[Rfam]
RNA sequence: GUUUGCUAUAAUAAAAUCUAUCUUCUUAUUGAUAGCCAAUAAGAAGCCAUCUCCUUUGUGUUGUUUAUAGUAACAAACAAAACAAUUUUUGCUCGAGUAUAUUUUUAGUACCUAGUCCUUACUAAUUAUGUACAAUUAAUUCAUUUCCCGUAAAAACCAAGUAAUGAUGAAUGUGUCUCCUCACUUCAAUUACUUGGUUUUU
Numbered sequence: 001g002u003u004u005g006c007u008a009u010a011a012u013a014a015a016a017u018c019u020a021u022c023u024u025c026u027u028a029u030u031g032a033u034a035g036c037c038a039a040u041a042a043g044a045a046g047c048c049a050u051c052u053c054c055u056u057u058g059u060g061u062u063g064u065u066u067a068u069a070g071u072a073a074c075a076a077a078c079a080a081a082a083c084a085a086u087u088u089u090u091g092c093u094c095g096a097g098u099a100u101a102u103u104u105u106u107a108g109u110a111c112c113u114a115g116u117c118c119u120u121a122c123u124a125a126u127u128a129u130g131u132a133c134a135a136u137u138a139a140u141u142c143a144u145u146u147c148c149c150g151u152a153a154a155a156a157c158c159a160a161g162u163a164a165u166g167a168u169g170a171a172u173g174u175g176u177c178u179c180c181u182c183a184c185u186u187c188a189a190u191u192a193c194u195u196g197g198u199u200u201u202u
Base pairs, nucleotide, nucleotide: 019049022046023045024044025043026042027041028040029039030038031037056085057084058083059082061080062079063078064077065076097133098132099131100130101129102128105125106124108122109121110120157197158196159195160194161193162192163191164190165189

This 202-nucleotide sequence from Staphylococcus saprophyticus belongs to the Rfam family "RNA Staph. aureus D". Rfam classes the family as a small RNA.